[Rfam]
Bacterial RNase P class A: a 354-nucleotide sequence from Parasporobacterium paucivorans. Rfam classes the family as a ribozyme.

RNA sequence: CGAGUAGAAUAAAUGAUCGCGGCUGCUAUGUCCGAAAGGAUGCAGCCGAGGAAAGUCCGGGCUUCGCAGGGCAGAAUGCCGGAUAACAUCCGGUGGAGGCGACUCUAAGGAUAGUGCAACAGAAAUAUACCGCCUGCAGAUUGCCUGCAGGUAAGGGUGGAAGGGCAGUUUAAGAGACUACCGCCCUCCCGGUAACGGGAGGGGCAUAUGUAAACCCCAUUCGAAGCAAGGCCGAAUAGAAAGCGAAGGGCUGCCCGUCCAGCUUUCGGGUAGGUCGCUCGAGUCUGCUGGCGACAGCAGACCCAGAUAGAUGAUCAUUCACGACAUAACCCGGCUUAUCGUUCUGCUCGGUGA
Numbered sequence: 001c002g003a004g005u006a007g008a009a010u011a012a013a014u015g016a017u018c019g020c021g022g023c024u025g026c027u028a029u030g031u032c033c034g035a036a037a038g039g040a041u042g043c044a045g046c047c048g049a050g051g052a053a054a055g056u057c058c059g060g061g062c063u064u065c066g067c068a069g070g071g072c073a074g075a076a077u078g079c080c081g082g083a084u085a086a087c088a089u090c091c092g093g094u095g096g097a098g099g100c101g102a103c104u105c106u107a108a109g110g111a112u113a114g115u116g117c118a119a120c121a122g123a124a125a126u127a128u129a130c131c132g133c134c135u136g137c138a139g140a141u142u143g144c145c146u147g148c149a150g151g152u153a154a155g156g157g158u159g160g161a162a163g164g165g166c167a168g169u170u171u172a173a174g175a176g177a178c179u180a181c182c183g184c185c186c187u188c189c190c191g192g193u194a195a196c197g198g199g200a201g202g203g204g205c206a207u208a209u210g211u212a213a214a215c216c217c218c219a220u221u222c223g224a225a226g227c228a229a230g231g232c233c234g235a236a237u238a239g240a241a242a243g244c245g246a247a248g249g250g251c252u253g254c255c256c257g258u259c260c261a262g263c264u265u266u267c268g269g270g271u272a273g274g275u276c277g278c279u280c281g282a283g284u285c286u287g288c289u290g291g292c293g294a295c296a297g298c299a300g301a302c303c304c305a306g307a308u309a310g311a312u313g314a315u316c317a318u319u320c321a322c323g324a325c326a327u328a329a330c331c332c333g334g335c336u337u338a339u340c341g342u343u344c345u346g347c348u349c350g351g352u353g354a
Base pairs, nucleotide, nucleotide: 001350002349003348004347005346006345007344008343009342010341011339012319013318014317015316016315017314018313020048021047022046023045024044025043026042053337054336055335057334058333059332060331061330062226063225064224065223069256070255071254072253074222075221076220077219078218079093080092081091082090083089094108095106096105097104098103109217110216114215115214116211117210118209130156131155132152133151134150135149136148137147138146139145164182165181167179168178169177183205184203185202186201187200188199189198190197191196230276231275232274233273239267240266241265242264243263244262248260249259250258251257283302284301285300286299287298288297289296290295